[Rfam]
RNA sequence: ACCACCACCAGCAGCGCAGAAGUAAGGGUGGCAAUACACCCUACCAUUCCACCCUUACUUCUGCGCUGCUGCUGGUGGC
Numbered sequence: 001a002c003c004a005c006c007a008c009c010a011g012c013a014g015c016g017c018a019g020a021a022g023u024a025a026g027g028g029u030g031g032c033a034a035u036a037c038a039c040c041c042u043a044c045c046a047u048u049c050c051a052c053c054c055u056u057a058c059u060u061c062u063g064c065g066c067u068g069c070u071g072c073u074g075g076u077g078g079c
Stems, first nucleotide, its partner, number of pairs: 002078001004076003010070008019060001021059008
RNA: mir-16 microRNA precursor family